[Rfam]
RNA sequence: CCCUCGCUCAACAAAUCGCUAUUCGAAGCUAACAUACGGAGACACUCGGCCUUGGCUAGCGUCUCAUCAUUCUAUUGCUUUGGGAGAAAGUCCCCGGACGUCUCUCUUCGGGGAGCUUGCGGAAACGCGCCGCCAUAGAAGCACUGCGGCUGACCUUUUGCGCCUUGGCCUUCUCCGUGGACCAUUCGCCCUGCCCGUCGCCACAUCCGUGUCUUGCGAGUCUUGCUUGGAGCCUAGUUGCAUCUCUCGGCCCAUUUGGAUGAAGAUAUGAGUCCGCGUUGGGAUGGUGUGGCUGGGACUUCCGGCGCUAGACGAGCAGGUUCGGAUGACGGGUAGCCGUGGGUGACAAGGAGUGUGGCAUCGGGUACUGAGGAUAUUUUGUCGAGGUUGAUAGGUAUGCGAUUGCUCGGUUUACCGAGUUACUCGACGGGGCUUAUUCUUGAGGCGAGG
Numbered sequence: 001c002c003c004u005c006g007c008u009c010a011a012c013a014a015a016u017c018g019c020u021a022u023u024c025g026a027a028g029c030u031a032a033c034a035u036a037c038g039g040a041g042a043c044a045c046u047c048g049g050c051c052u053u054g055g056c057u058a059g060c061g062u063c064u065c066a067u068c069a070u071u072c073u074a075u076u077g078c079u080u081u082g083g084g085a086g087a088a089a090g091u092c093c094c095c096g097g098a099c100g101u102c103u104c105u106c107u108u109c110g111g112g113g114a115g116c117u118u119g120c121g122g123a124a125a126c127g128c129g130c131c132g133c134c135a136u137a138g139a140a141g142c143a144c145u146g147c148g149g150c151u152g153a154c155c156u157u158u159u160g161c162g163c164c165u166u167g168g169c170c171u172u173c174u175c176c177g178u179g180g181a182c183c184a185u186u187c188g189c190c191c192u193g194c195c196c197g198u199c200g201c202c203a204c205a206u207c208c209g210u211g212u213c214u215u216g217c218g219a220g221u222c223u224u225g226c227u228u229g230g231a232g233c234c235u236a237g238u239u240g241c242a243u244c245u246c247u248c249g250g251c252c253c254a255u256u257u258g259g260a261u262g263a264a265g266a267u268a269u270g271a272g273u274c275c276g277c278g279u280u281g282g283g284a285u286g287g288u289g290u291g292g293c294u295g296g297g298a299c300u301u302c303c304g305g306c307g308c309u310a311g312a313c314g315a316g317c318a319g320g321u322u323c324g325g326a327u328g329a330c331g332g333g334u335a336g337c338c339g340u341g342g343g344u345g346a347c348a349a350g351g352a353g354u355g356u357g358g359c360a361u362c363g364g365g366u367a368c369u370g371a372g373g374a375u376a377u378u379u380u381g382u383c384g385a386g387g388u389u390g391a392u393a394g395g396u397a398u399g400c401g402a403u404u405g406c407u408c409g410g411u412u413u414a415c416c417g418a419g420u421u422a423c424u425c426g427a428c429g430g431g432g433c434u435u436a437u438u439c440u441u442g443a444g445g446c447g448a449g450g
Stems, first nucleotide, its partner, number of pairs: 002450006008443004014404006023084001024082006039065005045059001088435003092432004118129004247370001249368001250366004259362003346356003406419005

A member of the RNA family "RNase MRP" from Metarhizium acridum, 450 nucleotides long. The family's consensus secondary structure is taken from published work. Rfam links the family to the GO terms ribonuclease MRP activity, rRNA processing and ribonuclease MRP complex. The match comes from Rfam's covariance-model search (105 bits). Rfam describes the family as follows. RNase MRP is an enzymatically active ribonucleoprotein with two distinct roles in eukaryotes. In mitochondria it plays a direct role in the initiation of mitochondrial DNA replication. In the nucleus it is involved in precursor rRNA processing, where it cleaves the internal transcribed spacer 1 between 18S and 5.8S rRNAs. Despite distinct functions, RNase MRP has been shown to be evolutionarily related to RNase P. Like eukaryotic RNase P, RNase MRP is not catalytically active without associated protein subunits. Taxonomically the source falls in Metarhizium acridum (Eukaryota, Pezizomycotina, sordariomyceta, Sordariomycetes).